[Rfam]
RNA: SAH (S-adenosyl-L-homocysteine) riboswitch aptamer
RNA sequence: CACGCCGAGGAGCGUUGCAACCCCAUCUCCGCUGGAGAUCGGGCCAGGCUCGGCGCGAGUGGGUCCAUUUUGUCCAAACGGCGCUCACUCACG
Numbered sequence: 001c002a003c004g005c006c007g008a009g010g011a012g013c014g015u016u017g018c019a020a021c022c023c024c025a026u027c028u029c030c031g032c033u034g035g036a037g038a039u040c041g042g043g044c045c046a047g048g049c050u051c052g053g054c055g056c057g058a059g060u061g062g063g064u065c066c067a068u069u070u071u072g073u074c075c076a077a078a079c080g081g082c083g084c085u086c087a088c089u090c091a092c093g
Stems, first nucleotide, its partner, number of pairs: 003055006021043003025039005